Rfam assigns this 77-nucleotide RNA sequence from Croceicoccus pelagius to the family "terC RNA". Rfam classes the family as a cis-regulatory element. Pairs were carried over by alignment from the consensus structure, which is taken from published work.
RNA sequence: ACGCGGGACCGGGCCCCUCUGGCGCGGCGUCCCUGGCUCAAUGGCCAGCGAACGCCACGUGAUGUCGGACCGCAUCG
Number, nucleotide and partner (000 for none) at each position: 001a000002c000003g000004c000005g000006g071007g070008a000009c068010c067011g066012g065013g000014c000015c000016c000017c000018u000019c000020u000021g000022g060023c059024g058025c000026g056027g055028c054029g053030u000031c000032c000033c000034u000035g000036g000037c000038u000039c000040a000041a000042u000043g000044g000045c000046c000047a000048g000049c000050g000051a000052a000053c029054g028055c027056c026057a000058c024059g023060u022061g000062a000063u000064g000065u012066c011067g010068g009069a000070c007071c006072g000073c000074a000075u000076c000077g000